MIR2617 microRNA precursor family: an 87-nucleotide RNA sequence from Medicago truncatula. NCBI's taxonomy places the organism under Eukaryota, Streptophyta, Fabaceae, Hologalegina, Medicago. Pairs were carried over by alignment from the consensus structure, which was predicted with RNAalifold.

RNA sequence: AUGUAGUGUGACAUGCCCGUUUGGGAAUUACUCUGAUGUUGAAUUAAUUAUUAUUUAAUUACUUUUGGGUAACGGGGUGUUACAAAA
Numbered sequence: 001a002u003g004u005a006g007u008g009u010g011a012c013a014u015g016c017c018c019g020u021u022u023g024g025g026a027a028u029u030a031c032u033c034u035g036a037u038g039u040u041g042a043a044u045u046a047a048u049u050a051u052u053a054u055u056u057a058a059u060u061a062c063u064u065u066u067g068g069g070u071a072a073c074g075g076g077g078u079g080u081u082a083c084a085a086a087a
Stems, first nucleotide, its partner, number of pairs: 004087001007084008016076006